This 120-nucleotide RNA sequence from Clostridium sp. CAG:43 belongs to the Rfam family "Molybdenum/Tungsten riboswitch aptamer (Moco RNA motif)". It scores 66 bits against the family's covariance model. For this family Rfam cites "in molybdenum cofactor and tungsten cofactor metabolism" (Regulski et al., Mol Microbiol, 2008). The family's consensus secondary structure is taken from published work.
RNA sequence: AAACAAUCUGUUUUUCGAGCCGAAAUUGCUAAGCGGGAAACCGUAUGCAGUCAGGCCAAUGGGUACAUCUGGAAAUGGAAGUGCCUUCCGCAUUUGAAAAGAAAGAGAGAUUCGCUUUAC
Numbered sequence: 001a002a003a004c005a006a007u008c009u010g011u012u013u014u015u016c017g018a019g020c021c022g023a024a025a026u027u028g029c030u031a032a033g034c035g036g037g038a039a040a041c042c043g044u045a046u047g048c049a050g051u052c053a054g055g056c057c058a059a060u061g062g063g064u065a066c067a068u069c070u071g072g073a074a075a076u077g078g079a080a081g082u083g084c085c086u087u088c089c090g091c092a093u094u095u096g097a098a099a100a101g102a103a104a105g106a107g108a109g110a111u112u113c114g115c116u117u118u119a120c
Stems, first nucleotide, its partner, number of pairs: 006111001011106006019056003024051001026050004033044004061086006068079004087097002